Rfam assigns this 73-nucleotide sequence from Alligator sinensis to the family "Mammalian CPEB3 ribozyme". The match comes from Rfam's covariance-model search (64 bits).
[Rfam]
RNA sequence: GAUGAAUAACAGCCAUAGCAGAAGUGCUCACGUUGCGGCCCUGUCAGAUUCUAAUGAAUCUGCGAAUUCUGCU
Numbered sequence: 001g002a003u004g005a006a007u008a009a010c011a012g013c014c015a016u017a018g019c020a021g022a023a024g025u026g027c028u029c030a031c032g033u034u035g036c037g038g039c040c041c042u043g044u045c046a047g048a049u050u051c052u053a054a055u056g057a058a059u060c061u062g063c064g065a066a067u068u069c070u071g072c073u
Stems, first nucleotide, its partner, number of pairs: 012039003017073007024036003045062007